[Rfam]
RNA sequence: AUUACAAACCGGCCCAUCAUUGGGCACCUAACUAUAUAUGGAAACUAGAAGUUGUUAGCUGCCUAGUGAAGGGCUUCUUUGUGAU
Numbered sequence: 001a002u003u004a005c006a007a008a009c010c011g012g013c014c015c016a017u018c019a020u021u022g023g024g025c026a027c028c029u030a031a032c033u034a035u036a037u038a039u040g041g042a043a044a045c046u047a048g049a050a051g052u053u054g055u056u057a058g059c060u061g062c063c064u065a066g067u068g069a070a071g072g073g074c075u076u077c078u079u080u081g082u083g084a085u
Stems, first nucleotide, its partner, number of pairs: 004082005011075005017069004023063002028058005
Background: A member of the RNA family "mir-980 microRNA precursor family" from Hermetia illucens, 85 nucleotides long. Its family is annotated with miRNA-mediated post-transcriptional gene silencing and RISC complex in the Gene Ontology. Rfam 15.1 lists 121 matches to the family in 99 species. The family's consensus secondary structure was predicted with RNAalifold.